[Rfam]
RNA sequence: AAUAACAGAAGAGGAGCGAAAGCCAGGUAAUUAGUGUGAGGAGCGGAGUCCAGUGAACACUAAUGAGGGGGACUUUCGCCGAGAGAAAUAGUUUACCGUGAAACAAUUUUUCGGUUUUUGAGGCUGAAUCCUCAAGAAUUGUCACCGAGUAUUAAAUCUCAAAGUUGAGUUUUAAUAAGGUGGAGAGCUUCUGGCUGA
Numbered sequence: 001a002a003u004a005a006c007a008g009a010a011g012a013g014g015a016g017c018g019a020a021a022g023c024c025a026g027g028u029a030a031u032u033a034g035u036g037u038g039a040g041g042a043g044c045g046g047a048g049u050c051c052a053g054u055g056a057a058c059a060c061u062a063a064u065g066a067g068g069g070g071g072a073c074u075u076u077c078g079c080c081g082a083g084a085g086a087a088a089u090a091g092u093u094u095a096c097c098g099u100g101a102a103a104c105a106a107u108u109u110u111u112c113g114g115u116u117u118u119u120g121a122g123g124c125u126g127a128a129u130c131c132u133c134a135a136g137a138a139u140u141g142u143c144a145c146c147g148a149g150u151a152u153u154a155a156a157u158c159u160c161a162a163a164g165u166u167g168a169g170u171u172u173u174a175a176u177a178a179g180g181u182g183g184a185g186a187g188c189u190u191c192u193g194g195c196u197g198a
Stems, first nucleotide, its partner, number of pairs: 006193006016079007024071001030064008083112007091104004113140011142183005
Dot-bracket structure: .....((((((....(((((((.(.....((((((((...................))))))))......).)))))))...(((((((.((((......)))).)))))))(((((((((((......))))))))))).(((((................................)))))....)))))).....

Overview
The record is a 198-nucleotide RNA from Pseudoalteromonas sp. NBT06-2, which matches "Lysine riboswitch aptamer" in Rfam. Lineage of the source: Bacteria > Pseudomonadati > Pseudomonadota > Gammaproteobacteria > Pseudoalteromonas. It scores 110 bits against the family's covariance model. Pairs were carried over by alignment from the consensus structure, which is taken from published work.